[Rfam]
RNA sequence: GGAGCAGCCCUGGGCUGGCAGGCUGACCCCCAGACUGCCUGCCAGCCAGGGCUGCUCU
Number, nucleotide and partner (000 for none) at each position: 001g000002g057003a056004g055005c054006a000007g052008c051009c050010c049011u048012g047013g000014g046015c045016u044017g043018g042019c041020a040021g039022g038023c037024u000025g000026a000027c000028c000029c000030c000031c000032a000033g000034a000035c000036u000037g023038c022039c021040u020041g019042c018043c017044a016045g015046c014047c012048a011049g010050g009051g008052c007053u000054g005055c004056u003057c002058u000
RNA: F6 TB sRNA